RNA: Purine riboswitch aptamer
RNA sequence: AAAAAUAUGUAUUGUUAUUUUCAUAUAAUCGUAGGGAUAUGGCCUACAAGUAUCUACCGGUUUACCGUAAAUAAACUGACUAUGAGAAGCAAUCGUGAAUAG
Number, nucleotide and partner (000 for none) at each position: 001a000002a000003a000004a000005a000006u000007a000008u000009g000010u000011a000012u000013u000014g000015u000016u000017a000018u088019u087020u086021u085022c084023a083024u082025a081026u000027a000028a000029u049030c000031g047032u046033a045034g044035g043036g000037a000038u000039a000040u000041g000042g000043c035044c034045u033046a032047c031048a000049a029050g000051u000052a000053u000054c000055u000056a000057c000058c078059g077060g076061u075062u074063u073064a072065c000066c000067g000068u000069a000070a000071a000072u064073a063074a062075a061076c060077u059078g058079a000080c000081u025082a024083u023084g022085a021086g020087a019088a018089g000090c000091a000092a000093u000094c000095g000096u000097g000098a000099a000100u000101a000102g000